[Rfam]
RNA sequence: CUGCAUCAAAAAGGGACGGUACUUCCCAGUGGAUUUUCCGUAUAGUUUUGAUGCGAAAAAGUAGAGAGGUGCAGUGUUACUCUUCAUCAUAUUACUUGUGAACGGAGAGUGUCAAGCGCUUCCCACAUUU
Numbered sequence: 001c002u003g004c005a006u007c008a009a010a011a012a013g014g015g016a017c018g019g020u021a022c023u024u025c026c027c028a029g030u031g032g033a034u035u036u037u038c039c040g041u042a043u044a045g046u047u048u049u050g051a052u053g054c055g056a057a058a059a060a061g062u063a064g065a066g067a068g069g070u071g072c073a074g075u076g077u078u079a080c081u082c083u084u085c086a087u088c089a090u091a092u093u094a095c096u097u098g099u100g101a102a103c104g105g106a107g108a109g110u111g112u113c114a115a116g117c118g119c120u121u122c123c124c125a126c127a128u129u130u
Stems, first nucleotide, its partner, number of pairs: 003054009016041004024033003064124001066122007075114002078111008088100004
RNA: Caenorhabditis snoRNA ceN80
Organism: Caenorhabditis brenneri